[Rfam]
RNA sequence: UUGCCUUAAACUAAUGAGUAAGGAAAACAAAGCUAGUGGUGGGAGCCGGUCGCAGCAUCUCACAACAUAAUGCAGUAAUUUUUGGAGGGGUGAUAGGCUAGCCUUGUGUUGAUGCUGCUUAUUUUGCAGAACUCACAUAGUGAUCGUUUGACCU
Numbered sequence: 001u002u003g004c005c006u007u008a009a010a011c012u013a014a015u016g017a018g019u020a021a022g023g024a025a026a027a028c029a030a031a032g033c034u035a036g037u038g039g040u041g042g043g044a045g046c047c048g049g050u051c052g053c054a055g056c057a058u059c060u061c062a063c064a065a066c067a068u069a070a071u072g073c074a075g076u077a078a079u080u081u082u083u084g085g086a087g088g089g090g091u092g093a094u095a096g097g098c099u100a101g102c103c104u105u106g107u108g109u110u111g112a113u114g115c116u117g118c119u120u121a122u123u124u125u126g127c128a129g130a131a132c133u134c135a136c137a138u139a140g141u142g143a144u145c146g147u148u149u150g151a152c153c154u
Stems, first nucleotide, its partner, number of pairs: 004023005032053002035050001037048003055073002058069001088154004094150005100144001106136003115129004